RNA sequence: CCAAAACUAGACACUUGUUAUUUUUUAAUUAAUUCUUAGUGUGUUAAAAAAAUUUCUAAAACCAAUUAGGAAAUGAUAAGUGGCUAGUUUUGA
Numbered sequence: 001c002c003a004a005a006a007c008u009a010g011a012c013a014c015u016u017g018u019u020a021u022u023u024u025u026u027a028a029u030u031a032a033u034u035c036u037u038a039g040u041g042u043g044u045u046a047a048a049a050a051a052a053u054u055u056c057u058a059a060a061a062c063c064a065a066u067u068a069g070g071a072a073a074u075g076a077u078a079a080g081u082g083g084c085u086a087g088u089u090u091u092g093a
Stems, first nucleotide, its partner, number of pairs: 002092009012082019033061002036059004
Dot-bracket structure: .(((((((((.(((((((((((((((((((..((.((((................))))))..))))))))))))))))))).))))))))).
This 93-nucleotide RNA from Prunus persica belongs to the Rfam family "MIR6288 microRNA precursor family". NCBI's taxonomy places the organism under Eukaryota, Streptophyta, Rosaceae, Amygdaloideae, Prunus. Rfam links the family to the GO terms RISC complex and miRNA-mediated post-transcriptional gene silencing. Rfam 15.1 lists 293 matches to the family in 9 species. A search with the family's covariance model found it, with a score of 76 bits.